The record is an 82-nucleotide sequence from Cyprinus carpio, which matches "mir-143 microRNA precursor family" in Rfam. It is one of the family's seed sequences.
[Rfam]
RNA sequence: GUCCUCAGGCCCAAGGUGCAGUGCUGCAUCUCUGGUCAACUGGGAGUCUGAGAUGAAGCACUGUAGCUCGGGAGGAAGGGCA
Numbered sequence: 001g002u003c004c005u006c007a008g009g010c011c012c013a014a015g016g017u018g019c020a021g022u023g024c025u026g027c028a029u030c031u032c033u034g035g036u037c038a039a040c041u042g043g044g045a046g047u048c049u050g051a052g053a054u055g056a057a058g059c060a061c062u063g064u065a066g067c068u069c070g071g072g073a074g075g076a077a078g079g080g081c082a
Base pairs, nucleotide, nucleotide: 010072011071012070015067017065018064019063020062021061022060023059024058025057027055028054029053030052031051032050034048035047036045037044